The record is a 181-nucleotide RNA from bacterium HR14, which matches "Lysine riboswitch aptamer" in Rfam. The base pairs follow the family's consensus structure, which is taken from published work. Riboswitches are metabolite binding domains within certain messenger RNAs that serve as precision sensors for their corresponding targets. Allosteric rearrangement of mRNA structure is mediated by ligand binding, and this results in modulation of gene expression. This family includes riboswitches that sense lysine in a number of genes involved in lysine metabolism, including lysC.

RNA sequence: UGGACGAGUAGAGGCGCGGGUGAACAAGAGUACCCAGCGGGAGGCGGACUGGCGCCGAGGAUCGCUGGCGAAAGGGUUCCCCGCCGAAAUCGCAGGAAGCCAGCCUUCCUUGCGGUUGGGCUGAAUGGGAACACCAUUCAGACUGUCAUCUCCGUUGUGGAGAUGGAGCGCUACUCGGCAG
Numbered sequence: 001u002g003g004a005c006g007a008g009u010a011g012a013g014g015c016g017c018g019g020g021u022g023a024a025c026a027a028g029a030g031u032a033c034c035c036a037g038c039g040g041g042a043g044g045c046g047g048a049c050u051g052g053c054g055c056c057g058a059g060g061a062u063c064g065c066u067g068g069c070g071a072a073a074g075g076g077u078u079c080c081c082c083g084c085c086g087a088a089a090u091c092g093c094a095g096g097a098a099g100c101c102a103g104c105c106u107u108c109c110u111u112g113c114g115g116u117u118g119g120g121c122u123g124a125a126u127g128g129g130a131a132c133a134c135c136a137u138u139c140a141g142a143c144u145g146u147c148a149u150c151u152c153c154g155u156u157g158u159g160g161a162g163a164u165g166g167a168g169c170g171c172u173a174c175u176c177g178g179c180a181g
Stems, first nucleotide, its partner, number of pairs: 006176006016084005022079004034068007088117009098107002118144002121141008146166007